[Rfam]
RNA: Proteobacterial sRNA psRNA2
Organism: Nitrosomonas europaea
RNA sequence: GGAUUACUCCUUUACGCUUUCGCGUUUGGUUGAUAAAGAUUCGCACCUCUAUCAAACCGGGUAAUCCCACCUCUUGGCAAGACCUGCUGUCAGAUCAAAUCUGAACUACUACACCUCAUCAUUGCAAAUGUAGUGAAGUCAUCCAUUUUUCUAUGAUAAACAUCCGGGCUCUGUUCUGAGCCCGGAUAUUCGUUU
Numbered sequence: 001g002g003a004u005u006a007c008u009c010c011u012u013u014a015c016g017c018u019u020u021c022g023c024g025u026u027u028g029g030u031u032g033a034u035a036a037a038g039a040u041u042c043g044c045a046c047c048u049c050u051a052u053c054a055a056a057c058c059g060g061g062u063a064a065u066c067c068c069a070c071c072u073c074u075u076g077g078c079a080a081g082a083c084c085u086g087c088u089g090u091c092a093g094a095u096c097a098a099a100u101c102u103g104a105a106c107u108a109c110u111a112c113a114c115c116u117c118a119u120c121a122u123u124g125c126a127a128a129u130g131u132a133g134u135g136a137a138g139u140c141a142u143c144c145a146u147u148u149u150u151c152u153a154u155g156a157u158a159a160a161c162a163u164c165c166g167g168g169c170u171c172u173g174u175u176c177u178g179a180g181c182c183c184g185g186a187u188a189u190u191c192g193u194u195u
Stems, first nucleotide, its partner, number of pairs: 001067007009060002014025004028058004032053004037048002069193002075145003081140002084138002089106002091103005108134004113129001162187010